[Rfam]
RNA sequence: AUAAAUACAUUCAAACGACCUCAUAUAAUAUCAGGAAUAUGGCCUGAGAGUUUCUACCGAAUCACCGUAAAUGAUUCGACUAUGGGGACAGACGCCUAUGCC
Numbered sequence: 001a002u003a004a005a006u007a008c009a010u011u012c013a014a015a016c017g018a019c020c021u022c023a024u025a026u027a028a029u030a031u032c033a034g035g036a037a038u039a040u041g042g043c044c045u046g047a048g049a050g051u052u053u054c055u056a057c058c059g060a061a062u063c064a065c066c067g068u069a070a071a072u073g074a075u076u077c078g079a080c081u082a083u084g085g086g087g088a089c090a091g092a093c094g095c096c097u098a099u100g101c102c
Stems, first nucleotide, its partner, number of pairs: 019087007029049001031047005058078007
Purine riboswitch aptamer: a 102-nucleotide sequence from Aneurinibacillus danicus. Rfam describes the family as follows. Riboswitches are metabolite binding domains within certain messenger RNAs that serve as precision sensors for their corresponding targets. Allosteric rearrangement of mRNA structure is mediated by ligand binding, and this results in modulation of gene expression. A class of riboswitches that selectively recognises guanine and becomes saturated at concentrations as low as 5 nM. In Bacillus subtilis, this mRNA motif is located on at least five separate transcriptional units that together encode 17 genes that are mostly involved in purine transport and purine nucleotide biosynthesis. It has also been shown that some members of this family are specific for adenine instead. Gene Ontology term of the family: purine nucleobase biosynthetic process. The source organism's lineage runs through Bacteria, Bacilli, Caryophanales, Paenibacillaceae and Aneurinibacillus. The base pairs follow the family's consensus structure, which is taken from published work.